[Rfam]
RNA sequence: GAUAGGAGUUACCUCCUAUCCUUUGUCAAGUCGUCCCUUCGGGACU
Numbered sequence: 001g002a003u004a005g006g007a008g009u010u011a012c013c014u015c016c017u018a019u020c021c022u023u024u025g026u027c028a029a030g031u032c033g034u035c036c037c038u039u040c041g042g043g044a045c046u
Base pairs, nucleotide, nucleotide: 001020002019003018004017005016006015007014008013033045034044035043036042037041